[Rfam]
RNA sequence: GUUUACCUGUGUGUGGAUGGUGCUCAGCACCAAGGACAGAUGUGUUUACCUAUGUGGAUGGUGCUCAGCACCAAGGACAGAUGUGUUUACCU
Numbered sequence: 001g002u003u004u005a006c007c008u009g010u011g012u013g014u015g016g017a018u019g020g021u022g023c024u025c026a027g028c029a030c031c032a033a034g035g036a037c038a039g040a041u042g043u044g045u046u047u048a049c050c051u052a053u054g055u056g057g058a059u060g061g062u063g064c065u066c067a068g069c070a071c072c073a074a075g076g077a078c079a080g081a082u083g084u085g086u087u088u089a090c091c092u
Stems, first nucleotide, its partner, number of pairs: 004083002007080004018073007026065007034055001036053001038051002041048002

This 92-nucleotide RNA sequence from Branchiostoma floridae belongs to the Rfam family "mir-2060 microRNA precursor family".
Rfam 15.1 lists 3,696 matches to the family in 4 species.
The organism belongs to Branchiostoma, within Eukaryota.
A search with the family's covariance model found it, with a score of 90 bits.
Rfam links the family to the GO terms RISC complex and miRNA-mediated post-transcriptional gene silencing.